[Rfam]
Background: A member of the RNA family "Molybdenum/Tungsten riboswitch aptamer (Moco RNA motif)" from Shigella flexneri, 146 nucleotides long.

RNA sequence: UUAACCACUAAACACUCUAGCCUCUGCACCUGGGUCAACUGAUACGGUGCUUUGGCCGUGACAAUGCUCGUAAAGAUUGCCACCAGGGCGAAGGAAAGAAAUGACUUCGCCUCCCGUAUCUGGAAAGGUGUACAUGGCUUCACAAC
Dot-bracket structure: ..((.(.....((((.(..(((...(((((...(((....)))..)))))...))).(((.((((..........)))).)))..((((((((...(....)..))))))))((.......))...))))).....).))......
The source organism's lineage runs through Bacteria, Pseudomonadota, Gammaproteobacteria, Enterobacterales and Shigella flexneri 5.